Small nucleolar RNA SNORA40: a 117-nucleotide RNA sequence from Catagonus wagneri. Rfam's curators write: The snoRNA ACA 40 belongs to the H/ACA family of snoRNAs and guides the pseudouridylation of 28S rRNA subunit at position U4565. NB This family has a high threshold value to exclude a large number of closely related sequences that do not appear to have conserved H and ACA boxes, and may be pseudogenes. By type it is an H/ACA-box small nucleolar RNA. The family's consensus secondary structure was predicted with RNAalifold. The source organism's lineage runs through Eukaryota, Teleostomi, Sarcopterygii, Eutheria and Catagonus. A search with the family's covariance model found it, with a score of 95 bits.
RNA sequence: AGCACCUGAGUUUAAUUUCUGUACAAAGAUUUACAGACAGGUGCAAAAAUAAAUCCUUUUUUGCAACCCAGAACUCACUGUUCAGUCUGAGUUUUGAUACAGAUGAGAAGGAACAUG
Numbered sequence: 001a002g003c004a005c006c007u008g009a010g011u012u013u014a015a016u017u018u019c020u021g022u023a024c025a026a027a028g029a030u031u032u033a034c035a036g037a038c039a040g041g042u043g044c045a046a047a048a049a050u051a052a053a054u055c056c057u058u059u060u061u062u063g064c065a066a067c068c069c070a071g072a073a074c075u076c077a078c079u080g081u082u083c084a085g086u087c088u089g090a091g092u093u094u095u096g097a098u099a100c101a102g103a104u105g106a107g108a109a110g111g112a113a114c115a116u117g
Base pairs, nucleotide, nucleotide: 002044003043004042005041006040007039008038011035015030016029017028018027020025054113056111057110059108060107061106062105063104069096070095071094072093073092074091075090076089077088